RNA sequence: AAGCCAGCCAAUUAAUCUGAUUAUCUGAAUGUGAUUCUGCAGAAAUUUAGACAAAGCUGGCAAAAAUGAUGCUCUUUUAUGAGCCUUAAGGACAACUGAGGUCUUUACAGUCCCUGAAAAUGUCUAUAGUA
Numbered sequence: 001a002a003g004c005c006a007g008c009c010a011a012u013u014a015a016u017c018u019g020a021u022u023a024u025c026u027g028a029a030u031g032u033g034a035u036u037c038u039g040c041a042g043a044a045a046u047u048u049a050g051a052c053a054a055a056g057c058u059g060g061c062a063a064a065a066a067u068g069a070u071g072c073u074c075u076u077u078u079a080u081g082a083g084c085c086u087u088a089a090g091g092a093c094a095a096c097u098g099a100g101g102u103c104u105u106u107a108c109a110g111u112c113c114c115u116g117a118a119a120a121u122g123u124c125u126a127u128a129g130u131a
Stems, first nucleotide, its partner, number of pairs: 003061005016043004071124001073122001083111002087107003091103003

Notes
Rfam assigns this 131-nucleotide RNA from Jaculus jaculus to the family "Small nucleolar RNA SNORA33". The source organism's lineage runs through Eukaryota, Eumetazoa, Gnathostomata, Theria and Jaculus. It scores 100 bits against the family's covariance model. The base pairs follow the family's consensus structure, which was predicted with PFOLD.